[Rfam]
RNA: Small nucleolar RNA Z155
RNA sequence: CAAUGACAUGAUGAUAACGAUUGUUCGGAAAUAUUAUGUCGACUAAAACUCAGACUACAAUUAUCUGAUCUUAAUG
Numbered sequence: 001c002a003a004u005g006a007c008a009u010g011a012u013g014a015u016a017a018c019g020a021u022u023g024u025u026c027g028g029a030a031a032u033a034u035u036a037u038g039u040c041g042a043c044u045a046a047a048a049c050u051c052a053g054a055c056u057a058c059a060a061u062u063a064u065c066u067g068a069u070c071u072u073a074a075u076g
Stems, first nucleotide, its partner, number of pairs: 001076002004073003